5' ureB small RNA: a 287-nucleotide RNA from Pseudomonas panipatensis. The organism belongs to Pseudomonas, within Bacteria. On this family, see Wen et al., J Bacteriol 2013: "Helicobacter pylori 5'ureB-sRNA, a cis-encoded antisense small RNA, negatively regulates ureAB expression by transcription termination". Its family is annotated with negative regulation of gene expression in the Gene Ontology.
RNA sequence: CUUCUUCGAUCUGCUGCGGGCAGAUGAAGUGGAUGUGCGUGUCGAUGCCGCCGGCGGUGAGGAUCAUGCCUUCGCCGGCGAUCACUUCGGUGCUGGCGCCGAGGGCGAUGCUCACGCCCGGCUGGAUAUCCGGGUUGCCGGCCUUGCCGAUGGCGGCGAUGCGUCCGUGCUUGAGGCCGACGUCGGCCUUGACGAUGCCCCAGUGAUCGAGGAUCAGCGCGUUGGUGAUCACCGUAUCGACCACCUCGGCGGCGCUCAACUGGCCCUGGCCCAUGCCAUCGCGGAUG
Numbered sequence: 001c002u003u004c005u006u007c008g009a010u011c012u013g014c015u016g017c018g019g020g021c022a023g024a025u026g027a028a029g030u031g032g033a034u035g036u037g038c039g040u041g042u043c044g045a046u047g048c049c050g051c052c053g054g055c056g057g058u059g060a061g062g063a064u065c066a067u068g069c070c071u072u073c074g075c076c077g078g079c080g081a082u083c084a085c086u087u088c089g090g091u092g093c094u095g096g097c098g099c100c101g102a103g104g105g106c107g108a109u110g111c112u113c114a115c116g117c118c119c120g121g122c123u124g125g126a127u128a129u130c131c132g133g134g135u136u137g138c139c140g141g142c143c144u145u146g147c148c149g150a151u152g153g154c155g156g157c158g159a160u161g162c163g164u165c166c167g168u169g170c171u172u173g174a175g176g177c178c179g180a181c182g183u184c185g186g187c188c189u190u191g192a193c194g195a196u197g198c199c200c201c202a203g204u205g206a207u208c209g210a211g212g213a214u215c216a217g218c219g220c221g222u223u224g225g226u227g228a229u230c231a232c233c234g235u236a237u238c239g240a241c242c243a244c245c246u247c248g249g250c251g252g253c254g255c256u257c258a259a260c261u262g263g264c265c266c267u268g269g270c271c272c273a274u275g276c277c278a279u280c281g282c283g284g285a286u287g
Stems, first nucleotide, its partner, number of pairs: 001287001003285001005283001007281003012158006018076002022072002030053003034050002037048004057069003077148002081144001085140001090138002092135003095130002099125002102123002105119001107117001165269003171259005177252002186220002189217003200209001223249001225247001231246001234245001